[Rfam]
RNA: nuoG RNA
RNA sequence: UAAUUUUUGAUUAACGCCUGCCACGGCAGGCCAUUGGGAAG
Numbered sequence: 001u002a003a004u005u006u007u008u009g010a011u012u013a014a015c016g017c018c019u020g021c022c023a024c025g026g027c028a029g030g031c032c033a034u035u036g037g038g039a040a041g
Stems, first nucleotide, its partner, number of pairs: 016031006
Dot-bracket structure: ...............((((((....))))))..........